[Rfam]
RNA sequence: GGUUUCCAUUGGUGCAAAUCCAAUUAUCUCAAUUUCAGAUGAGAAGAAAUUCUCCAUUGGUAGCAAUUUGUUAUCCAUUAAGCGGAGGAAAUUCUAUU
Numbered sequence: 001g002g003u004u005u006c007c008a009u010u011g012g013u014g015c016a017a018a019u020c021c022a023a024u025u026a027u028c029u030c031a032a033u034u035u036c037a038g039a040u041g042a043g044a045a046g047a048a049a050u051u052c053u054c055c056a057u058u059g060g061u062a063g064c065a066a067u068u069u070g071u072u073a074u075c076c077a078u079u080a081a082g083c084g085g086a087g088g089a090a091a092u093u094c095u096a097u098u
Stems, first nucleotide, its partner, number of pairs: 009023004052087004056078002059075006
Rfam assigns this 98-nucleotide sequence to the family "Plastid-rps12 3UTR RNA". On this family, see Richter et al., Plant Commun 2023: "Retrograde signaling in plants: A critical review focusing on the GUN pathway and beyond". Rfam describes the family as follows. Plastid rpl20 is a non-coding RNA (ncRNA) recognised in plastids. It was found in the three prime untranslated region (3UTR) of rps12 gene, its 3UTR location sugest a role in transcript maduration. It is one of the family's seed sequences.